[Rfam]
RNA sequence: GACGCGAGAGCGCCGCAGGCAGGAGCGGGGGACCCACGGUCUUCCGCCGGACCAGAGGCAUUGCGCCGCGCAGCACGGACAGCACCGCUGCCACGCGCACGCCACCGGUCCGGCUCGGGGUGAAGCCGGGUAUCCGCGUCCUUUUCGCGGUGCCGGCCGGGCAACUCACGUCCGAACCCGACAGCUGACCUCGUAGGCGUCGGUGAGGGACACA
Numbered sequence: 001g002a003c004g005c006g007a008g009a010g011c012g013c014c015g016c017a018g019g020c021a022g023g024a025g026c027g028g029g030g031g032a033c034c035c036a037c038g039g040u041c042u043u044c045c046g047c048c049g050g051a052c053c054a055g056a057g058g059c060a061u062u063g064c065g066c067c068g069c070g071c072a073g074c075a076c077g078g079a080c081a082g083c084a085c086c087g088c089u090g091c092c093a094c095g096c097g098c099a100c101g102c103c104a105c106c107g108g109u110c111c112g113g114c115u116c117g118g119g120g121u122g123a124a125g126c127c128g129g130g131u132a133u134c135c136g137c138g139u140c141c142u143u144u145u146c147g148c149g150g151u152g153c154c155g156g157c158c159g160g161g162c163a164a165c166u167c168a169c170g171u172c173c174g175a176a177c178c179c180g181a182c183a184g185c186u187g188a189c190c191u192c193g194u195a196g197g198c199g200u201c202g203g204u205g206a207g208g209g210a211c212a213c214a
Stems, first nucleotide, its partner, number of pairs: 011199004025194006035117001118179003126156004159173004
This 214-nucleotide sequence from Actinacidiphila paucisporea belongs to the Rfam family "c-di-AMP riboswitch aptamer (ydaO/yuaA leader)". The organism belongs to Actinacidiphila, within Bacteria.